[Rfam]
RNA sequence: GGGUGUUCUCAGGGCGGGGUGCAAGUCCCCACCGGCGGUAUGCGGCGAAAGCCGCGAGCCCGCGAGCGCCUUCUUCGGAAGGGACAGCAGAUCAGGUGCGAUGCCUGAGCCGACGGUUAUAGUCCGGAUGAAAGAGAACGCGC
Number, nucleotide and partner (000 for none) at each position: 001g000002g000003g141004u140005g139006u138007u137008c136009u135010c134011a000012g000013g000014g000015c000016g000017g029018g028019g027020u000021g000022c000023a000024a000025g000026u000027c019028c018029c017030c000031a123032c122033c112034g111035g063036c062037g061038g060039u000040a000041u000042g000043c000044g000045g000046c000047g000048a000049a000050a000051g000052c000053c000054g000055c000056g000057a000058g110059c109060c038061c037062g036063c035064g000065a000066g088067c087068g000069c000070c000071u000072u000073c000074u000075u000076c000077g000078g000079a000080a000081g000082g000083g000084a000085c000086a000087g067088c066089a000090g000091a000092u108093c107094a106095g105096g104097u000098g000099c000100g000101a000102u000103g000104c096105c095106u094107g093108a092109g059110c058111c034112g033113a000114c126115g125116g124117u000118u000119a000120u000121a000122g032123u031124c116125c115126g114127g000128a000129u000130g000131a000132a000133a000134g010135a009136g008137a007138a006139c005140g004141c003142g000143c000
The family of this 143-nucleotide sequence from Mesorhizobium sp. J18 is "FMN riboswitch aptamer (RFN element)". Gene Ontology term of the family: FMN binding. The RFN element is a highly conserved domain that is found frequently in the 5'-untranslated regions of prokaryotic mRNAs that encode for flavin mononucleotide (FMN) biosynthesis and transport proteins. A search with the family's covariance model found it, with a score of 114 bits.